[Rfam]
RNA sequence: CUGGCCCAAAGCCCCUGUGAGGAGCAGCUGCUCCUAGGAAGGUCUGAGACGGGAGGAUGCGAAAGCAGGCGCAAUGCCAUGUGGCCAGUGCCACUGUCUGCCUCAAUAGAAAACAACGCAAUGCGGCUGGAAGAGGCGGACAUCCCAUUCACAGCAGUGGAAUGCAGGGGGUCGUAAGACAACUGAAUUCAGACUACUCUUGGGCCAG
Numbered sequence: 001c002u003g004g005c006c007c008a009a010a011g012c013c014c015c016u017g018u019g020a021g022g023a024g025c026a027g028c029u030g031c032u033c034c035u036a037g038g039a040a041g042g043u044c045u046g047a048g049a050c051g052g053g054a055g056g057a058u059g060c061g062a063a064a065g066c067a068g069g070c071g072c073a074a075u076g077c078c079a080u081g082u083g084g085c086c087a088g089u090g091c092c093a094c095u096g097u098c099u100g101c102c103u104c105a106a107u108a109g110a111a112a113a114c115a116a117c118g119c120a121a122u123g124c125g126g127c128u129g130g131a132a133g134a135g136g137c138g139g140a141c142a143u144c145c146c147a148u149u150c151a152c153a154g155c156a157g158u159g160g161a162a163u164g165c166a167g168g169g170g171g172u173c174g175u176a177a178g179a180c181a182a183c184u185g186a187a188u189u190c191a192g193a194c195u196a197c198u199c200u201u202g203g204g205c206c207a208g
Stems, first nucleotide, its partner, number of pairs: 001208003007202003012170007020035005044192005055145004081094005096141007117125002171180003